[Rfam]
RNA sequence: AUCGUUCACCCGAAAGGGCGGAAGUACCCUAUUUUCUGUACAUAAUUCUAUGCUGGAAAUAUGGGGUAGGGGAAGGAACGCACC
Numbered sequence: 001a002u003c004g005u006u007c008a009c010c011c012g013a014a015a016g017g018g019c020g021g022a023a024g025u026a027c028c029c030u031a032u033u034u035u036c037u038g039u040a041c042a043u044a045a046u047u048c049u050a051u052g053c054u055g056g057a058a059a060u061a062u063g064g065g066g067u068a069g070g071g072g073a074a075g076g077a078a079c080g081c082a083c084c
Stems, first nucleotide, its partner, number of pairs: 003080005009018003021081001027071009

Shown here is an 84-nucleotide RNA, a member of the family "Glutamine riboswitch aptamer (glnA leader)". The sequence is in the family's curated seed alignment.